A member of the RNA family "Gammaprotebacteria rimP leader" from Alteromonas aestuariivivens, 136 nucleotides long.
Gene Ontology term of the family: regulation of gene expression.
A search with the family's covariance model found it, with a score of 53 bits.
By type it is a cis-regulatory leader.
Lineage of the source: Bacteria > Pseudomonadati > Pseudomonadota > Gammaproteobacteria > Alteromonas.

RNA sequence: AACUGCCGGUUGGCAGUAUGGGUUCAGAUUUAUGCAAAAGCCCCGCUCGUCCGGGGCUUUUUGUUGUAUCAAACCAGAGCUCAGGGCGCCUCGGCUGUCUGUGAGUAAAAUGAGUUGGGCUAUAGGCCCUUUUUUC
Number, nucleotide and partner (000 for none) at each position: 001a000002a000003c000004u000005g000006c000007c000008g000009g000010u000011u000012g000013g000014c000015a000016g000017u000018a000019u000020g000021g000022g000023u000024u000025c000026a000027g000028a000029u000030u000031u000032a000033u000034g000035c000036a000037a060038a059039a058040g057041c056042c055043c054044c053045g052046c000047u000048c000049g000050u000051c000052c045053g044054g043055g042056g041057c040058u039059u038060u037061u000062u000063g000064u000065u000066g000067u000068a000069u000070c000071a000072a000073a000074c000075c000076a000077g000078a000079g000080c000081u000082c000083a000084g000085g000086g000087c000088g000089c000090c000091u000092c000093g000094g000095c000096u000097g000098u000099c000100u000101g000102u000103g000104a000105g000106u000107a000108a000109a000110a000111u000112g000113a000114g000115u000116u000117g129118g128119g127120c126121u000122a000123u000124a000125g000126g120127c119128c118129c117130u000131u000132u000133u000134u000135u000136c000